[Rfam]
Annotation:
Shown here is a 73-nucleotide RNA sequence from Polaribacter sp. ALD11, a member of the family "Flavo-1 RNA".

Nucleotides: 073
Stems, first nucleotide, its partner, number of pairs: 009065003013061002018056002023051003029046006
Number, partner (000 for none) and nucleotide at each position: 001000g002000u003000c004000u005000a006000g007000c008000c009065c010064u011063g012000a013061u014060u015000g016000a017000a018056a019055c020000g021000g022000c023051a024050u025049c026000c027000u028000u029046u030045u031044u032043a033042c034041c035000u036000u037000u038000u039000u040000c041034g042033g043032u044031a045030a046029a047000a048000a049025g050024a051023u052000a053000u054000a055019g056018u057000g058000g059000a060014a061013a062000g063011c064010a065009g066000g067000a068000a069000a070000u071000a072000g073000c

Pairs were carried over by alignment from the consensus structure, which is taken from published work.